Shown here is a 138-nucleotide RNA sequence from Actinomadura barringtoniae, a member of the family "c-di-AMP riboswitch aptamer (ydaO/yuaA leader)". NCBI's taxonomy places the organism under Bacteria, Actinomycetota, Actinomycetes, Thermomonosporaceae, Actinomadura. About the family: This family represents a conserved RNA structure found upstream of the ydaO and yuaA genes in Bacillus subtilis and related genes in other bacteria. Gene Ontology terms of the family: cyclic-di-AMP binding and regulation of gene expression.
[Rfam]
RNA sequence: UCCGGUCGUGCGCCGAGUCUCCGCAAGGAGAGCCGGGGACCCAAUCUCCCGGGGUGAAUCCGCUGCUCAGCAGCGGUAGGGCCGUCUCCUUUGGCCCGAACCCGUCAGCUAACCCGGUAGGCGGACAAAGGAGAGGCG
Numbered sequence: 001u002c003c004g005g006u007c008g009u010g011c012g013c014c015g016a017g018u019c020u021c022c023g024c025a026a027g028g029a030g031a032g033c034c035g036g037g038g039a040c041c042c043a044a045u046c047u048c049c050c051g052g053g054g055u056g057a058a059u060c061c062g063c064u065g066c067u068c069a070g071c072a073g074c075g076g077u078a079g080g081g082c083c084g085u086c087u088c089c090u091u092u093g094g095c096c097c098g099a100a101c102c103c104g105u106c107a108g109c110u111a112a113c114c115c116g117g118u119a120g121g122c123g124g125a126c127a128a129a130g131g132a133g134a135g136g137c138g
Stems, first nucleotide, its partner, number of pairs: 011123004018031003032118006042051001052103003060076004079097004